A member of the RNA family "mir-142 microRNA precursor family" from Clupea harengus, 86 nucleotides long. The organism belongs to Clupea, within Eukaryota. The family's consensus secondary structure was predicted with RNAalifold. A search with the family's covariance model found it, with a score of 70 bits. On this family, see International Chicken Genome Sequencing Consortium, Nature 2004: "Sequence and comparative analysis of the chicken genome provide unique perspectives on vertebrate evolution". Gene Ontology terms of the family: RISC complex and miRNA-mediated post-transcriptional gene silencing.

RNA sequence: CAGUACCCUCAUCCAUAAAGUAGGAAACACUACACUGUGGCCUAGGGGGUUAGUAGUGCUUUCUACUUUAUGGAUGACUAUACUGA
Dot-bracket structure: .............((((((((((..(.((((((...................)))))).)..))))))))))..............